Source information: Shown here is a 59-nucleotide sequence from Cellulomonas carbonis, a member of the family "msiK RNA". Lineage of the source: Bacteria > Actinomycetota > Actinomycetes > Cellulomonadaceae > Cellulomonas carbonis.
RNA sequence: UACCGACGCUCUUCACGACGGAUCGUCCGGCACGUACCUGCCGGUGAAGGGAAGGACCU
Number, nucleotide and partner (000 for none) at each position: 001u000002a000003c000004c000005g000006a000007c000008g000009c051010u050011c049012u048013u047014c046015a045016c000017g000018a000019c000020g000021g000022a000023u000024c000025g000026u000027c044028c043029g042030g041031c040032a039033c000034g000035u000036a000037c000038c000039u032040g031041c030042c029043g028044g027045u015046g014047a013048a012049g011050g010051g009052a000053a000054g000055g000056a000057c000058c000059u000
Overview:
The family's RNA type in Rfam is cis-regulatory element. Pairs were carried over by alignment from the consensus structure, which is taken from published work.